[Rfam]
Record summary
Plant small nucleolar RNA R71: a 107-nucleotide RNA sequence from Acer saccharum.
RNA sequence: AGCCCAUGGUGCGGGCAUUUCCUCACAAGGUCCUUGAACCUUUCCCAUGCAUUGUAAAAGCUCUCGCUCUCAUAUUGGGCAAAGUUUGUAAUCUCAUUUCUGAGGCG
Numbered sequence: 001a002g003c004c005c006a007u008g009g010u011g012c013g014g015g016c017a018u019u020u021c022c023u024c025a026c027a028a029g030g031u032c033c034u035u036g037a038a039c040c041u042u043u044c045c046c047a048u049g050c051a052u053u054g055u056a057a058a059a060g061c062u063c064u065c066g067c068u069c070u071c072a073u074a075u076u077g078g079g080c081a082a083a084g085u086u087u088g089u090a091a092u093c094u095c096a097u098u099u100c101u102g103a104g105g106c107g
Stems, first nucleotide, its partner, number of pairs: 003105002005102002058073001060071001